Record summary:
FMN riboswitch aptamer (RFN element): a 164-nucleotide RNA from Caballeronia novacaledonica.

RNA sequence: GUACGUCUUCAGGGCGGGGUGCAAUUCCCCACCGGCGGUAUGUGGCGAGGCCUCGCGGCUAGACCACGAGCCCGCGAGCGCCCGCGCCGGCAGCAUGCGCGGGGUCAGCAGAUCUGGUGAAACGCCAGAGCCGACGGUCACAGUCCGGAUGAGAGAAGAUGUGC
Number, nucleotide and partner (000 for none) at each position: 001g000002u000003a162004c161005g160006u159007c158008u157009u156010c155011a000012g000013g000014g000015c000016g000017g029018g028019g027020u000021g000022c000023a000024a000025u000026u000027c019028c018029c017030c000031a144032c143033c133034g132035g075036c074037g073038g072039u000040a000041u000042g000043u000044g000045g000046c000047g000048a000049g000050g000051c000052c000053u000054c000055g000056c000057g000058g000059c000060u000061a000062g000063a000064c000065c000066a000067c000068g000069a000070g131071c130072c038073c037074g036075c035076g000077a000078g109079c108080g000081c000082c000083c000084g000085c000086g000087c000088c000089g000090g000091c000092a000093g000094c000095a000096u000097g000098c000099g000100c000101g000102g000103g000104g000105u000106c000107a000108g079109c078110a000111g000112a000113u129114c128115u127116g126117g125118u000119g000120a000121a000122a000123c000124g000125c117126c116127a115128g114129a113130g071131c070132c034133g033134a000135c147136g146137g145138u000139c000140a000141c000142a000143g032144u031145c137146c136147g135148g000149a000150u000151g000152a000153g000154a000155g010156a009157a008158g007159a006160u005161g004162u003163g000164c000
NCBI's taxonomy places the organism under Bacteria, Pseudomonadota, Betaproteobacteria, Burkholderiales, Caballeronia. Pairs were carried over by alignment from the consensus structure, which is taken from published work.